[Rfam]
Shown here is a 139-nucleotide RNA sequence from Scyliorhinus torazame, a member of the family "Small nucleolar RNA SNORA49". The snoRNA ACA49 has no identified RNA target. NB genomic sequence 1-nt different from published. Rfam 15.1 lists 722 matches to the family in 550 species. Its family is annotated with nucleolus and RNA processing in the Gene Ontology.
RNA sequence: UUCCCCCAACCUUUCUGCAGACACAGUAAAACUCGUAUUGUGUACUGUCAUUGUCCUGGGGGUAGAUUAAAGCACCUUUUUCCCUCCCCAGCAGGAAUUAAUAUGAUAUUCUCUGGGGCCUAUAGAAUGGGCUGACAAC
Numbered sequence: 001u002u003c004c005c006c007c008a009a010c011c012u013u014u015c016u017g018c019a020g021a022c023a024c025a026g027u028a029a030a031a032c033u034c035g036u037a038u039u040g041u042g043u044a045c046u047g048u049c050a051u052u053g054u055c056c057u058g059g060g061g062g063u064a065g066a067u068u069a070a071a072g073c074a075c076c077u078u079u080u081u082c083c084c085u086c087c088c089c090a091g092c093a094g095g096a097a098u099u100a101a102u103a104u105g106a107u108a109u110u111c112u113c114u115g116g117g118g119c120c121u122a123u124a125g126a127a128u129g130g131g132c133u134g135a136c137a138a139c
Stems, first nucleotide, its partner, number of pairs: 003062006011053001017048004023041005071133003075129001086118006093112004